[Rfam]
RNA: mir-19 microRNA precursor family
RNA sequence: GCCCUCUGUUAGUUUUGCAUAGUUGCACUACAAGAAGAAUGUAGUUGUGCAAAUCUAUGCAAAACUGAUGGUGGCC
Numbered sequence: 001g002c003c004c005u006c007u008g009u010u011a012g013u014u015u016u017g018c019a020u021a022g023u024u025g026c027a028c029u030a031c032a033a034g035a036a037g038a039a040u041g042u043a044g045u046u047g048u049g050c051a052a053a054u055c056u057a058u059g060c061a062a063a064a065c066u067g068a069u070g071g072u073g074g075c076c
Base pairs, nucleotide, nucleotide: 003074004073006071007070008069009068010067011066012065013064014063015062016061017060018059019058020057021056023052024051025050026049027048028047030045031044